Shown here is a 46-nucleotide RNA from Priestia filamentosa, a member of the family "Ribosomal protein L19 leader".
A search with the family's covariance model found it, with a score of 43 bits.
The source organism's lineage runs through Bacteria, Bacillota, Caryophanales, Bacillaceae and Priestia.
By type it is a cis-regulatory leader.
Pairs were carried over by alignment from the consensus structure, which was predicted with CMfinder.
About the family: This family is a putative r-protein leader autoregulatory structure found in B. subtilis and other low-GC Gram-positive bacteria. It is located in the 5' untranslated regions of mRNAs encoding ribosomal protein L19 (rplS).
Gene Ontology term of the family: regulation of gene expression.
[Rfam]
RNA sequence: ACGAUGUUCCGCUGCAAUGAUGCGAAAGCAUUGAUAAGAGCAUCUG
Numbered sequence: 001a002c003g004a005u006g007u008u009c010c011g012c013u014g015c016a017a018u019g020a021u022g023c024g025a026a027a028g029c030a031u032u033g034a035u036a037a038g039a040g041c042a043u044c045u046g
Stems, first nucleotide, its partner, number of pairs: 003044007013036002015033004